MIR4371 microRNA precursor family: a 147-nucleotide RNA sequence from Glycine max.
The family's consensus secondary structure was predicted with RNAalifold.
The source organism's lineage runs through Eukaryota, Pentapetalae, Fabaceae, Phaseoleae and Glycine subgen. Soja.
It scores 112 bits against the family's covariance model.

RNA sequence: UCGUUAAGUGAUGAUGUGACAGAUGGAGUGUCAUGUCAUCACACCCAAUCACUGACACGUCAUUGAAGGUGGUGACAUGGCAAUAAGAUGCUUGUGACAAUGCGUGAUGACAUGGUACUCUGUCCAUCACAUCAUCACUUAACGAAA
Number, nucleotide and partner (000 for none) at each position: 001u145002c144003g143004u142005u141006a140007a139008g138009u137010g136011a135012u134013g133014a132015u131016g130017u129018g128019a127020c000021a000022g124023a123024u122025g121026g120027a119028g118029u117030g116031u115032c114033a113034u112035g111036u110037c109038a108039u107040c106041a105042c104043a000044c102045c000046c000047a000048a000049u097050c096051a095052c094053u000054g092055a000056c090057a089058c000059g076060u075061c074062a073063u072064u000065g000066a000067a000068g000069g000070u000071g000072g063073u062074g061075a060076c059077a000078u000079g000080g000081c000082a000083a000084u000085a000086a000087g000088a000089u057090g056091c000092u054093u000094g052095u051096g050097a049098c000099a000100a000101u000102g044103c000104g042105u041106g040107a039108u038109g037110a036111c035112a034113u033114g032115g031116u030117a029118c028119u027120c026121u025122g024123u023124c022125c000126a000127u019128c018129a017130c016131a015132u014133c013134a012135u011136c010137a009138c008139u007140u006141a005142a004143c003144g002145a001146a000147a000